[Rfam]
RNA sequence: AAGUACAUGAUUAAAACCAAAGAUGUAACUACACACUGAGGAUGUACAUGCAGGACAAAAUAAUUAUAGGAAUUCUUCGUUUAUGACUGGCUU
Number, nucleotide and partner (000 for none) at each position: 001a093002a092003g091004u090005a000006c000007a000008u000009g000010a000011u000012u000013a000014a000015a000016a000017c000018c000019a000020a000021a000022g000023a000024u000025g000026u000027a000028a000029c000030u000031a000032c000033a000034c000035a000036c000037u000038g000039a000040g000041g000042a000043u000044g000045u000046a000047c000048a000049u000050g000051c000052a000053g000054g000055a000056c000057a000058a000059a000060a000061u000062a000063a000064u000065u000066a000067u000068a000069g000070g000071a000072a000073u000074u000075c000076u000077u000078c000079g000080u000081u000082u000083a000084u000085g000086a000087c000088u000089g000090g004091c003092u002093u001

Rfam assigns this 93-nucleotide RNA sequence from Clavispora lusitaniae to the family "Small nucleolar RNA snR57". Taxonomically the source falls in Clavispora lusitaniae (Eukaryota, Fungi, Dikarya, Ascomycota). The base pairs follow the family's consensus structure. On this family, see Lowe and Eddy, Science 1999: "A computational screen for methylation guide snoRNAs in yeast".